The record is a 171-nucleotide sequence from Lachnospiraceae bacterium XPB1003, which matches "Group II catalytic intron D1-D4-3" in Rfam.
From the family's description: Group II introns are found in rRNA, tRNA and mRNA of organelles in fungi, plants and protists, and also in mRNA in bacteria.
Pairs were carried over by alignment from the consensus structure.
Gene Ontology term of the family: Group II intron splicing.
It scores 119 bits against the family's covariance model.

[Rfam]
RNA sequence: UACAUCGCGAGGUUGUAGGCGAGAAGAAGGGAUAGCGAAAUCGUAGCCUGACGAACAGAAACCUGAUACAAGGCGUACAUGGCGGAUAAACUGGCCCAAGACAGUGAAGUCCAAAAGGCAACCGUAACCCAUGUGCGUAAAUCAGGCAGGUAGACGAGGAAAGAUUGGCAG
Number, nucleotide and partner (000 for none) at each position: 001u017002a016003c015004a014005u012006c011007g000008c000009g000010a000011g006012g005013u000014u004015g003016u002017a001018g000019g000020c000021g000022a000023g000024a000025a000026g000027a000028a000029g000030g000031g169032a000033u167034a000035g000036c163037g000038a000039a000040a000041u157042c156043g155044u154045a000046g151047c150048c149049u148050g147051a000052c000053g000054a000055a000056c000057a000058g000059a000060a000061a000062c146063c145064u144065g143066a142067u141068a000069c000070a000071a000072g000073g138074c137075g136076u000077a134078c133079a132080u131081g130082g129083c000084g112085g111086a110087u109088a000089a000090a105091c104092u103093g102094g000095c000096c000097c000098a000099a000100g000101a000102c093103a092104g091105u090106g000107a000108a000109g087110u086111c085112c084113a000114a000115a000116a000117g000118g000119c000120a000121a000122c000123c000124g000125u000126a000127a000128c000129c082130c081131a080132u079133g078134u077135g000136c075137g074138u073139a000140a000141a067142u066143c065144a064145g063146g062147c050148a049149g048150g047151u046152a000153g000154a044155c043156g042157a041158g000159g000160a000161a000162a000163g036164a000165u000166u000167g033168g000169c031170a000171g000